The family of this 173-nucleotide RNA from Calothrix sp. PCC 7507 is "Nitrogen stress-induced RNA 8". For this family Rfam cites "Identification of Conserved and Potentially Regulatory Small RNAs in Heterocystous Cyanobacteria" (Brenes-Alvarez et al., Front Microbiol, 2016). Rfam links the family to the GO term heterocyst differentiation. Lineage of the source: Bacteria > Bacillati > Cyanophyceae > Calotrichaceae > Calothrix. The match comes from Rfam's covariance-model search (89 bits).

RNA sequence: AUAAGAAUUGCUAGGAUUAACUUUAGUUACAACAUUGAACACGGAAUACAUAACCGUUCCUUAUGUUUGUUUACUUGGUAAUCCUCACAACCUAUUGAAUUUUAUUUGUGUAUUUUUUCCAGAGUCCAGGGUGUAUUGCCACUUUCAAGCUAUGGGACGGGGUAAAACCCGUC
Numbered sequence: 001a002u003a004a005g006a007a008u009u010g011c012u013a014g015g016a017u018u019a020a021c022u023u024u025a026g027u028u029a030c031a032a033c034a035u036u037g038a039a040c041a042c043g044g045a046a047u048a049c050a051u052a053a054c055c056g057u058u059c060c061u062u063a064u065g066u067u068u069g070u071u072u073a074c075u076u077g078g079u080a081a082u083c084c085u086c087a088c089a090a091c092c093u094a095u096u097g098a099a100u101u102u103u104a105u106u107u108g109u110g111u112a113u114u115u116u117u118u119c120c121a122g123a124g125u126c127c128a129g130g131g132u133g134u135a136u137u138g139c140c141a142c143u144u145u146c147a148a149g150c151u152a153u154g155g156g157a158c159g160g161g162g163u164a165a166a167a168c169c170c171g172u173c
Stems, first nucleotide, its partner, number of pairs: 001115001003113001004111001006109001008090003013085004017080001025075003029071001031067005038062002041057003121153001123151003128145006156173006